RNA: SAM riboswitch aptamer (S box leader)
Organism: Buchananella hordeovulneris
RNA sequence: CGACCAUCCAGAGCAGCCGAGAGACCUGGCUCAGUGACGCUGCAGCAACCCCCCGGUAAGGGUGCGGGUGCUUCCGCCAGGACCGAUGGAGG
Number, nucleotide and partner (000 for none) at each position: 001c092002g000003a000004c089005c088006a087007u086008c085009c000010a000011g000012a000013g043014c042015a041016g040017c039018c000019g000020a000021g032022a031023g030024a000025c000026c080027u079028g078029g077030c023031u022032c021033a000034g000035u000036g000037a000038c000039g017040c016041u015042g014043c013044a072045g071046c070047a069048a000049c068050c067051c064052c000053c062054c061055g000056g000057u000058a000059a000060g000061g054062g053063u000064g051065c000066g000067g050068g049069u047070g046071c045072u044073u000074c000075c000076g084077c029078c028079a027080g026081g000082a000083c000084c076085g008086a007087u006088g005089g004090a000091g000092g001